[Rfam]
RNA sequence: UUCUGGGCUCGGCACGAACCCGCAUGGCAGGAGCGGGGGAACCACUCUUUCCGAGCGUCGAGAGACGUUCUCGGGGUGAAGCCCUCCGUGGACCGCAAGGUCCGAGCGAAGGCCGGGCGAGAUUCCUCCAGCCCGAACCCGACAGCUCACCUCGUAGGCGUCGAGAGGUCAA
Numbered sequence: 001u002u003c004u005g006g007g008c009u010c011g012g013c014a015c016g017a018a019c020c021c022g023c024a025u026g027g028c029a030g031g032a033g034c035g036g037g038g039g040a041a042c043c044a045c046u047c048u049u050u051c052c053g054a055g056c057g058u059c060g061a062g063a064g065a066c067g068u069u070c071u072c073g074g075g076g077u078g079a080a081g082c083c084c085u086c087c088g089u090g091g092a093c094c095g096c097a098a099g100g101u102c103c104g105a106g107c108g109a110a111g112g113c114c115g116g117g118c119g120a121g122a123u124u125c126c127u128c129c130a131g132c133c134c135g136a137a138c139c140c141g142a143c144a145g146c147u148c149a150c151c152u153c154g155u156a157g158g159c160g161u162c163g164a165g166a167g168g169u170c171a172a
Base pairs, nucleotide, nucleotide: 001032002031003030004029005028033155034154035153036152037151038150043073074140075139076138082112083111085109115134116133117132118131
RNA: c-di-AMP riboswitch aptamer (ydaO/yuaA leader)